A member of the RNA family "mir-221 microRNA precursor family" from Salvator merianae, 83 nucleotides long. The base pairs follow the family's consensus structure, which was predicted with RNAalifold. Gene Ontology terms of the family: RISC complex and miRNA-mediated post-transcriptional gene silencing. The organism belongs to Salvator, within Eukaryota. The family has 72 seed sequences and 1,797 matches in Rfam 15.1. The literature on the family includes a 2008 paper in J Virol by Yao et al., "MicroRNA profile of Marek's disease virus-transformed T-cell line MSB-1: predominance of virus-encoded microRNAs".
RNA sequence: UUGGGCCUGAACCUGGCAUACAAUGUAGAAUUCUGUUUUGUUAAGCAACAGCUACAUUGUCUGCUGGGUUUCAGGCUGCUUGG
Numbered sequence: 001u002u003g004g005g006c007c008u009g010a011a012c013c014u015g016g017c018a019u020a021c022a023a024u025g026u027a028g029a030a031u032u033c034u035g036u037u038u039u040g041u042u043a044a045g046c047a048a049c050a051g052c053u054a055c056a057u058u059g060u061c062u063g064c065u066g067g068g069u070u071u072c073a074g075g076c077u078g079c080u081u082g083g
Stems, first nucleotide, its partner, number of pairs: 013067006020060009033051004